[Rfam]
RNA sequence: CUGACUGUUCAUGACGUUAAAAUACUAAAUCCCUACUGGGAUGUGUUUUAGUUGAUUUUAGUCUC
Numbered sequence: 001c002u003g004a005c006u007g008u009u010c011a012u013g014a015c016g017u018u019a020a021a022a023u024a025c026u027a028a029a030u031c032c033c034u035a036c037u038g039g040g041a042u043g044u045g046u047u048u049u050a051g052u053u054g055a056u057u058u059u060a061g062u063c064u065c
Stems, first nucleotide, its partner, number of pairs: 003063003016052010031040003
RNA: Selenocysteine insertion sequence 1
Organism: Mytilus coruscus